[Rfam]
RNA sequence: GAAGGCACGGGUGCCGUGAGGCCUCGGUCCGCUCGCUUUCGGCCCUGGCACACCUUCCCCGGUGCCAGGUCCGACGAGCGGGCGGGGACCUGGCGGCACCCGUUGUGUCCGGG
Numbered sequence: 001g002a003a004g005g006c007a008c009g010g011g012u013g014c015c016g017u018g019a020g021g022c023c024u025c026g027g028u029c030c031g032c033u034c035g036c037u038u039u040c041g042g043c044c045c046u047g048g049c050a051c052a053c054c055u056u057c058c059c060c061g062g063u064g065c066c067a068g069g070u071c072c073g074a075c076g077a078g079c080g081g082g083c084g085g086g087g088a089c090c091u092g093g094c095g096g097c098a099c100c101c102g103u104u105g106u107g108u109c110c111g112g113g
Stems, first nucleotide, its partner, number of pairs: 010100007020090002023087003027083008039074004044069008
Shown here is a 113-nucleotide RNA sequence from Actinokineospora auranticolor, a member of the family "mraW RNA". Rfam 15.1 lists 851 matches to the family in 821 species. The match comes from Rfam's covariance-model search (66 bits). The organism belongs to Actinokineospora, within Bacteria.